The family of this 79-nucleotide RNA from Nezara viridula is "mir-67 microRNA precursor family". Its family is annotated with RISC complex and miRNA-mediated post-transcriptional gene silencing in the Gene Ontology. The match comes from Rfam's covariance-model search (73 bits). Rfam 15.1 lists 196 matches to the family in 188 species.
RNA sequence: GAGUCUGUUGACUCACUCAAUCUGGGUGUGAUGUGCCUUCUGUAUCCAUCACAACCUCCUUGAGUGAGCGAAUGGGCUC
Numbered sequence: 001g002a003g004u005c006u007g008u009u010g011a012c013u014c015a016c017u018c019a020a021u022c023u024g025g026g027u028g029u030g031a032u033g034u035g036c037c038u039u040c041u042g043u044a045u046c047c048a049u050c051a052c053a054a055c056c057u058c059c060u061u062g063a064g065u066g067a068g069c070g071a072a073u074g075g076g077c078u079c
Base pairs, nucleotide, nucleotide: 008071009070010069012068013067014066015065016064017063018062019061020060024056025055027053028052029051030050031049032048033047
Dot-bracket structure: .......(((.(((((((((...((.(((((((.............))))))).))...))))))))))))........